[Rfam]
RNA sequence: ACAACAGUAUAGGCUUUGAGGGCGGUCGGCUAGUCUCCCGGAAGGGAGGUGAUGCCAUGGAGGUUAAAGACGCUUUGAUGUUGAUGAUCGGUUUUGGUGCGCUAAUUAUCGCGUUGCUGACACUGGUUGUCGCAAUCGUCACAGCGUUUAACCAAAAGAAAUAGACCGCCCUCAACCCAGGGAUAACGGUCUAUUUCCAAUCACUUAUCCGCAAGCCUACCGCCCUUAAAAGCGGCUGUUGUGGGGAGUCGUGUUAGCGCACGGCUC
Numbered sequence: 001a002c003a004a005c006a007g008u009a010u011a012g013g014c015u016u017u018g019a020g021g022g023c024g025g026u027c028g029g030c031u032a033g034u035c036u037c038c039c040g041g042a043a044g045g046g047a048g049g050u051g052a053u054g055c056c057a058u059g060g061a062g063g064u065u066a067a068a069g070a071c072g073c074u075u076u077g078a079u080g081u082u083g084a085u086g087a088u089c090g091g092u093u094u095u096g097g098u099g100c101g102c103u104a105a106u107u108a109u110c111g112c113g114u115u116g117c118u119g120a121c122a123c124u125g126g127u128u129g130u131c132g133c134a135a136u137c138g139u140c141a142c143a144g145c146g147u148u149u150a151a152c153c154a155a156a157a158g159a160a161a162u163a164g165a166c167c168g169c170c171c172u173c174a175a176c177c178c179a180g181g182g183a184u185a186a187c188g189g190u191c192u193a194u195u196u197c198c199a200a201u202c203a204c205u206u207a208u209c210c211g212c213a214a215g216c217c218u219a220c221c222g223c224c225c226u227u228a229a230a231a232g233c234g235g236c237u238g239u240u241g242u243g244g245g246g247a248g249u250c251g252u253g254u255u256a257g258c259g260c261a262c263g264g265c266u267c
Base pairs, nucleotide, nucleotide: 001242002241003240004239006237007236010219011218012217013216014215015214016175017174018173019172020171021170022169024166026164031052033050035048036047037046038045039044059121062118063117064116073086097112098111099110181198182197183196220235221234222233223232246267247266248265249264250263251262252261253260254259
Dot-bracket structure: ((((.((..(((((((((((((.(.(....(.(.(((((....))))).).)......(..(((........(............)..........(((..........)))...)))..)..........................................).)..))))))).....(((............)))...............))))))((((........)))))).))))...(((((((((....)))))))))